[Rfam]
RNA sequence: UGCAGCUGUGUCAAAUUCAGUGCCUGCCCUACCAAUGGCAGACACUGGCCCAGAAGGCUGCCAUAGAAACACUGUGACUCAUGGGCCCUGUUCCCCUUGCUUGGGCUCAGGGAUACAUUUGGUCACAGACACCA
Numbered sequence: 001u002g003c004a005g006c007u008g009u010g011u012c013a014a015a016u017u018c019a020g021u022g023c024c025u026g027c028c029c030u031a032c033c034a035a036u037g038g039c040a041g042a043c044a045c046u047g048g049c050c051c052a053g054a055a056g057g058c059u060g061c062c063a064u065a066g067a068a069a070c071a072c073u074g075u076g077a078c079u080c081a082u083g084g085g086c087c088c089u090g091u092u093c094c095c096c097u098u099g100c101u102u103g104g105g106c107u108c109a110g111g112g113a114u115a116c117a118u119u120u121g122g123u124c125a126c127a128g129a130c131a132c133c134a
Stems, first nucleotide, its partner, number of pairs: 002061004018047005024041005074126006086112005
Small nucleolar RNA SNORA5: a 134-nucleotide RNA sequence from Jaculus jaculus.
About the family: ACA5 is a member of the H/ACA class of snoRNA that guide the sites of modification of uridines to pseudouridines.
Rfam 15.1 lists 2,226 matches to the family in 629 species.
Rfam classes the family as an H/ACA-box small nucleolar RNA.